[Rfam]
RNA sequence: UCCAUGGCGACGCCGAAUCUGAAGGAAGCUGGCGGCAAAGCACUGGUCCGAGGAACACGAAUCUCAUAUGCGGCUAGAUACGGUUGAGUGAGUUUUCAUUACAAAACAAAGCUCUUUCUGUCAAAGGCUGUAGCUAGUAAUGAGGCUGAUAAAUGGUGUGAACGGAUGUGCU
Numbered sequence: 001u002c003c004a005u006g007g008c009g010a011c012g013c014c015g016a017a018u019c020u021g022a023a024g025g026a027a028g029c030u031g032g033c034g035g036c037a038a039a040g041c042a043c044u045g046g047u048c049c050g051a052g053g054a055a056c057a058c059g060a061a062u063c064u065c066a067u068a069u070g071c072g073g074c075u076a077g078a079u080a081c082g083g084u085u086g087a088g089u090g091a092g093u094u095u096u097c098a099u100u101a102c103a104a105a106a107c108a109a110a111g112c113u114c115u116u117u118c119u120g121u122c123a124a125a126g127g128c129u130g131u132a133g134c135u136a137g138u139a140a141u142g143a144g145g146c147u148g149a150u151a152a153a154u155g156g157u158g159u160g161a162a163c164g165g166a167u168g169u170g171c172u
Stems, first nucleotide, its partner, number of pairs: 001016002005012002028172001030170002036164001040159006046150003050146001062145006073138003077134001079132006086114004092107004
Dot-bracket structure: ((..((....))..))...........(.((....(...(((((((((.(...........((((((.....(((.(.((((((.((((..((((........))))...))))............)))))).).))).))))))).)))...))))))....)....)).)

Overview: Group II catalytic intron D1-D4-3: a 172-nucleotide sequence from Lysinibacillus sphaericus. The match comes from Rfam's covariance-model search (104 bits). Taxonomically the source falls in Lysinibacillus (Bacteria, Bacillati, Bacilli, Bacillaceae).